[Rfam]
The record is an 811-nucleotide RNA sequence from Oceanipulchritudo coccoides, which matches "MISL RNA" in Rfam. The family's RNA type in Rfam is small RNA. NCBI's taxonomy places the organism under Bacteria, Pseudomonadati, Opitutia, Puniceicoccales, Oceanipulchritudo. It scores 386 bits against the family's covariance model.
RNA sequence: GGAUAAUCCCGGGCAACCGGGGAAAGGUCAGAUUUAUCGAACGAAUCUGGCUCCUCAUAAUCGAGGGCCGGUAUCCUCUGCGGAGGUUGCCAUCAAGCCCCACGAGGUGAGGCAUAUUUCACCGUUGGUGCCAGGGUUGGUCACACAGCCCUGAUCUGUGAUAGCACACAACCGGCAGUUCGCUGUCGGCCGCGUAGAAAGCGGUCACCACAAAGACAGCAGACUGAGUUAGGGAAUCCGAAGGAUUUGUGUCCUUGGAAGCUCCAACGCGGUGACCUGAAAGGUCAAGGAAUGUUACCGUGCAGUUCGUCCGUUUGAACAAACCGGGUGGGGGCCAAUCCCGCCAAAAGCGACCAUAAAACGUUGGUGCAGCGAAAACGGUAGAGCAAGCGGGGAAGCAGGCGGCCGAAAACUAGACAACAGCCGCAGGUUUCCUUUGAGAAGCUGGGGGCUCGAAAAACCGAGUCGUCGGCCUGUAAACUGAAUGCAUUCCCGAGAGGUAAGAGGUCAGACCCGUAACCCAAGGCAAACGUCCUAUUUAACUACAGGAGCCGACCUUGGGGAAAAGUGGUAGGGAUACCGGAUUACAGCGAUAUCCCUGUCAGGUACGGCAGUUCUGUGGUUCGCAACCGCGGAGCGAUCUGUGCUGAGAGGCCUCACUCACGAACUAGAUGGAAGUAAUUCCAUCUUCGGCCCUGCUACGAGGCCGCAACUCCGAAGAGCCUCGGAGAAUAGCGUCGGGGAGCUGGCAGCCAGGAGAGAUCCAGAGCGCCAAAUGUCAGCAUCCGGGAAAGAUCGCGUGGCGAGCGAC
Numbered sequence: 001g002g003a004u005a006a007u008c009c010c011g012g013g014c015a016a017c018c019g020g021g022g023a024a025a026g027g028u029c030a031g032a033u034u035u036a037u038c039g040a041a042c043g044a045a046u047c048u049g050g051c052u053c054c055u056c057a058u059a060a061u062c063g064a065g066g067g068c069c070g071g072u073a074u075c076c077u078c079u080g081c082g083g084a085g086g087u088u089g090c091c092a093u094c095a096a097g098c099c100c101c102a103c104g105a106g107g108u109g110a111g112g113c114a115u116a117u118u119u120c121a122c123c124g125u126u127g128g129u130g131c132c133a134g135g136g137u138u139g140g141u142c143a144c145a146c147a148g149c150c151c152u153g154a155u156c157u158g159u160g161a162u163a164g165c166a167c168a169c170a171a172c173c174g175g176c177a178g179u180u181c182g183c184u185g186u187c188g189g190c191c192g193c194g195u196a197g198a199a200a201g202c203g204g205u206c207a208c209c210a211c212a213a214a215g216a217c218a219g220c221a222g223a224c225u226g227a228g229u230u231a232g233g234g235a236a237u238c239c240g241a242a243g244g245a246u247u248u249g250u251g252u253c254c255u256u257g258g259a260a261g262c263u264c265c266a267a268c269g270c271g272g273u274g275a276c277c278u279g280a281a282a283g284g285u286c287a288a289g290g291a292a293u294g295u296u297a298c299c300g301u302g303c304a305g306u307u308c309g310u311c312c313g314u315u316u317g318a319a320c321a322a323a324c325c326g327g328g329u330g331g332g333g334g335c336c337a338a339u340c341c342c343g344c345c346a347a348a349a350g351c352g353a354c355c356a357u358a359a360a361a362c363g364u365u366g367g368u369g370c371a372g373c374g375a376a377a378a379c380g381g382u383a384g385a386g387c388a389a390g391c392g393g394g395g396a397a398g399c400a401g402g403c404g405g406c407c408g409a410a411a412a413c414u415a416g417a418c419a420a421c422a423g424c425c426g427c428a429g430g431u432u433u434c435c436u437u438u439g440a441g442a443a444g445c446u447g448g449g450g451g452c453u454c455g456a457a458a459a460a461c462c463g464a465g466u467c468g469u470c471g472g473c474c475u476g477u478a479a480a481c482u483g484a485a486u487g488c489a490u491u492c493c494c495g496a497g498a499g500g501u502a503a504g505a506g507g508u509c510a511g512a513c514c515c516g517u518a519a520c521c522c523a524a525g526g527c528a529a530a531c532g533u534c535c536u537a538u539u540u541a542a543c544u545a546c547a548g549g550a551g552c553c554g555a556c557c558u559u560g561g562g563g564a565a566a567a568g569u570g571g572u573a574g575g576g577a578u579a580c581c582g583g584a585u586u587a588c589a590g591c592g593a594u595a596u597c598c599c600u601g602u603c604a605g606g607u608a609c610g611g612c613a614g615u616u617c618u619g620u621g622g623u624u625c626g627c628a629a630c631c632g633c634g635g636a637g638c639g640a641u642c643u644g645u646g647c648u649g650a651g652a653g654g655c656c657u658c659a660c661u662c663a664c665g666a667a668c669u670a671g672a673u674g675g676a677a678g679u680a681a682u683u684c685c686a687u688c689u690u691c692g693g694c695c696c697u698g699c700u701a702c703g704a705g706g707c708c709g710c711a712a713c714u715c716c717g718a719a720g721a722g723c724c725u726c727g728g729a730g731a732a733u734a735g736c737g738u739c740g741g742g743g744a745g746c747u748g749g750c751a752g753c754c755a756g757g758a759g760a761g762a763u764c765c766a767g768a769g770c771g772c773c774a775a776a777u778g779u780c781a782g783c784a785u786c787c788g789g790g791a792a793a794g795a796u797c798g799c800g801u802g803g804c805g806a807g808c809g810a811c
Base pairs, nucleotide, nucleotide: 008021009020010019011018012017026052027051028050029049030048031047032046033045034044035043061105062104063103065101066100124172125171126170127169128167129166130165135150136149137148138147139146141161142160143159144158145157176226177225178224179223182220183219184218185217186216234262237259238258239257240256241255243253268302269301270300271299272298274286275285276284277283290493292490293489294488295487327345328344329343330342331341332340333339353368354367355366356365392437393436394435395434396433397432402427403426404425405424406423452465453464454463455462497662498661499660504658505657506656507655520562521561522560523559524558525557526556533550534549535548536547538545572601573600574599575598576597577596578595579594581592606647607646608645609644610643611642614638615637616636617635618634619633620632621631622630623629670689671688672687673686674685675684676683677682691709692708693707694706695705698736699735700734701733713730714729715728716727717726718725745783746782747781748780749779750778751777752770753769756765757764758763796810797809798808
Dot-bracket structure: .......(((((....)))))....((((((((((.......))))))))))........(((.((.................................)).)))..................(((((((....(((((.[[[[[)))))......]]]]]...))).))))...((((..(((((.............................)))))..)))).......(..(((((.(.........).)))))..).....(((((.((((.....))))...[.[[[[..)))))........................(((((((.....))))))).......((((........)))).......................((((((....(((((................)))))....))))))..............((((......)))).....................]]]]..]...(((....((((............(((((((......((((.(......).)))).....))))))).........((((((((.(..........).))))))))....((((((..((((((((((.....))))))))))...)))))).......)))).))).......((((((((....)))))))).(((((..[[[[...)))))...((((((......))))))..]]]]........(((((((((..(((....)))...))......)))))))............(((.........))).